[Rfam]
RNA sequence: UACAGGCGGGCCUGACUCUUUGCUCUACCCGUACCUCCUCCUCUGGGUGAGCAAAGUUUCAGGUGUGUCGGUGG
Numbered sequence: 001u002a003c004a005g006g007c008g009g010g011c012c013u014g015a016c017u018c019u020u021u022g023c024u025c026u027a028c029c030c031g032u033a034c035c036u037c038c039u040c041c042u043c044u045g046g047g048u049g050a051g052c053a054a055a056g057u058u059u060c061a062g063g064u065g066u067g068u069c070g071g072u073g074g
Base pairs, nucleotide, nucleotide: 002072003071005069006068007067010064011063012062013061014060015059018056019055020054021053023051024050025049028047029046030045
The family of this 74-nucleotide sequence from Dufourea novaeangliae is "mir-87 microRNA precursor family".
Pairs were carried over by alignment from the consensus structure, which was predicted with RNAalifold.
It scores 60 bits against the family's covariance model.
Rfam 15.1 lists 420 matches to the family in 285 species.